[Rfam]
RNA sequence: AUGAGGAGGCCUCCCAAUGAUGCGAAGCAUCAUUUAGGAAUGAGGCCGACGACUUGCCCGGGCCCGAAGGGGCGGGGCGCUACAUUAU
Numbered sequence: 001a002u003g004a005g006g007a008g009g010c011c012u013c014c015c016a017a018u019g020a021u022g023c024g025a026a027g028c029a030u031c032a033u034u035u036a037g038g039a040a041u042g043a044g045g046c047c048g049a050c051g052a053c054u055u056g057c058c059c060g061g062g063c064c065c066g067a068a069g070g071g072g073c074g075g076g077g078c079g080c081u082a083c084a085u086u087a088u
Base pairs, nucleotide, nucleotide: 008047009046010045011044012043013042017033018032019031020030021029022028056078057077058076059074060073063070064069